About this RNA:
The record is a 149-nucleotide sequence from Lentibacillus populi, which matches "Listeria sRNA rli38" in Rfam. A search with the family's covariance model found it, with a score of 89 bits. The literature on the family includes a 2009 paper in Nature by Toledo-Arana et al., "The Listeria transcriptional landscape from saprophytism to virulence".
RNA sequence: AUUGAGUGGGAGUAAAGAGCUAACUUAAUUUGGAGAGAGAACGCCUAUUUAACAGUGUUUAUCUUAAUCUUAAAUUGACAAAUUGGUAUAAAAUAAUAUAGUUCCCUGCCAAAAUCCCUGCCAAAAAUAAUUUGGUAGGGGUAUUUUUU
Numbered sequence: 001a002u003u004g005a006g007u008g009g010g011a012g013u014a015a016a017g018a019g020c021u022a023a024c025u026u027a028a029u030u031u032g033g034a035g036a037g038a039g040a041a042c043g044c045c046u047a048u049u050u051a052a053c054a055g056u057g058u059u060u061a062u063c064u065u066a067a068u069c070u071u072a073a074a075u076u077g078a079c080a081a082a083u084u085g086g087u088a089u090a091a092a093a094u095a096a097u098a099u100a101g102u103u104c105c106c107u108g109c110c111a112a113a114a115u116c117c118c119u120g121c122c123a124a125a126a127a128u129a130a131u132u133u134g135g136u137a138g139g140g141g142u143a144u145u146u147u148u149u
Stems, first nucleotide, its partner, number of pairs: 008106005049085001051083001055079001058078002061075002064072001087095002113145003116140010
Dot-bracket structure: .......(((((....................................(.(...(..((.((.(.......).)).)))...).).((.....))......)))))......(((((((((((((.....))))))))))..)))....